[Rfam]
RNA sequence: AAGACUAUACUUUCAGGGAUCAUUUCUAUAGUUUCUGACUUGAGAAAUGUGUUUCCAAAUGCUCUGGUCUCGCUAUCCACGAUGAUGAAAUGUGAUAUUUCCCACUGGGCGUGAAGCGGGCACAGAGAAGUGAUUCAGUUCACAAGCUUUCUGCCAUUGAUGACCGUUCUUUACUUCCUAGUGGAGUAAGGAUGUGGGGAAUAUGGACAGAGUGGU
Numbered sequence: 001a002a003g004a005c006u007a008u009a010c011u012u013u014c015a016g017g018g019a020u021c022a023u024u025u026c027u028a029u030a031g032u033u034u035c036u037g038a039c040u041u042g043a044g045a046a047a048u049g050u051g052u053u054u055c056c057a058a059a060u061g062c063u064c065u066g067g068u069c070u071c072g073c074u075a076u077c078c079a080c081g082a083u084g085a086u087g088a089a090a091u092g093u094g095a096u097a098u099u100u101c102c103c104a105c106u107g108g109g110c111g112u113g114a115a116g117c118g119g120g121c122a123c124a125g126a127g128a129a130g131u132g133a134u135u136c137a138g139u140u141c142a143c144a145a146g147c148u149u150u151c152u153g154c155c156a157u158u159g160a161u162g163a164c165c166g167u168u169c170u171u172u173a174c175u176u177c178c179u180a181g182u183g184g185a186g187u188a189a190g191g192a193u194g195u196g197g198g199g200a201a202u203a204u205g206g207a208c209a210g211a212g213u214g215g216u
Stems, first nucleotide, its partner, number of pairs: 001041003005037001007034001009032003015027004049064001051062001053061001077215004095204011109167003119155004125149003130143004170190008
Shown here is a 216-nucleotide RNA sequence from Gasterosteus aculeatus, a member of the family "Small nucleolar RNA U3". The match comes from Rfam's covariance-model search (156 bits). Rfam 15.1 lists 19,072 matches to the family in 1,215 species. The family is grouped with related families in Rfam's "U3 clan". Rfam links the family to the GO terms RNA processing and nucleolus. The family's RNA type in Rfam is C/D-box small nucleolar RNA. Rfam's curators write: Small nucleolar RNAs (snoRNAs) are involved in the processing and modification of rRNA in the nucleolus. There are two main classes of snoRNAs: the box C/D class, and the box H/ACA class. U3 snoRNA is a member of the box C/D class. Indeed, the box C/D element is a subset of the six short sequence elements found in all U3 snoRNAs, namely boxes A, A', B, C, C', and D. The U3 snoRNA secondary structure is characterised by a small 5' domain (with boxes A and A'), and a larger 3' domain (with boxes B, C, C', and D), the two domains being linked by a single-stranded hinge. Lineage of the source: Eukaryota > Eumetazoa > Vertebrata > Acanthomorphata > Gasterosteus. A reference for the family is Zwieb (1997), "The uRNA database", Nucleic Acids Res.